Shown here is a 148-nucleotide RNA sequence from Kluyvera cryocrescens, a member of the family "Glm Y RNA activator of glmS mRNA". The family's consensus secondary structure is taken from published work. Lineage of the source: Bacteria > Pseudomonadota > Enterobacterales > Enterobacteriaceae > Kluyvera. This family consists of a number of bacterial RNA genes of around 167 bases in length. The tke1 RNA gene is present in Escherichia coli, Shigella flexneri, Yersinia pestis and Salmonella species where it is found between the yfhK and purL genes. The function of this RNA is unknown. It is annotated as a small RNA.
[Rfam]
RNA sequence: AGUGGCUCAUUCACCUUCUUAUGUCAGCCCCUUCGGGACGUGCUACAUAAACUUCGAAUGACGCACAACAAGGUGCCUGCCGUCCAGCAACUGAUAAUAGCUCUGCUUUAUCAAUCAUCGGGCGAAACGUUGAGUUAGGCACCGCCUU
Numbered sequence: 001a002g003u004g005g006c007u008c009a010u011u012c013a014c015c016u017u018c019u020u021a022u023g024u025c026a027g028c029c030c031c032u033u034c035g036g037g038a039c040g041u042g043c044u045a046c047a048u049a050a051a052c053u054u055c056g057a058a059u060g061a062c063g064c065a066c067a068a069c070a071a072g073g074u075g076c077c078u079g080c081c082g083u084c085c086a087g088c089a090a091c092u093g094a095u096a097a098u099a100g101c102u103c104u105g106c107u108u109u110a111u112c113a114a115u116c117a118u119c120g121g122g123c124g125a126a127a128c129g130u131u132g133a134g135u136u137a138g139g140c141a142c143c144g145c146c147u148u
Stems, first nucleotide, its partner, number of pairs: 005064002007061006019050006026044003072143007081124005092113006126136003